RNA sequence: CAAAAGGCUCUUUUAAGAGCCACCCAAUUCCUCUAUUCAGAAGAGU
Numbered sequence: 001c002a003a004a005a006g007g008c009u010c011u012u013u014u015a016a017g018a019g020c021c022a023c024c025c026a027a028u029u030c031c032u033c034u035a036u037u038c039a040g041a042a043g044a045g046u
Base pairs, nucleotide, nucleotide: 006021007020008019009018010017011016
Rfam assigns this 46-nucleotide sequence from Microcaecilia unicolor to the family "Histone 3' UTR stem-loop".
The source organism's lineage runs through Eukaryota, Craniata, Teleostomi, Siphonopidae and Microcaecilia.
The mRNAs of metazoan histone genes lack a poly-A tail. 3' end processing occurs at a site between a highly conserved stem-loop (modelled by this family) and a purine rich region around 20 nts downstream (the histone downstream element, or HDE).
The family's RNA type in Rfam is cis-regulatory element.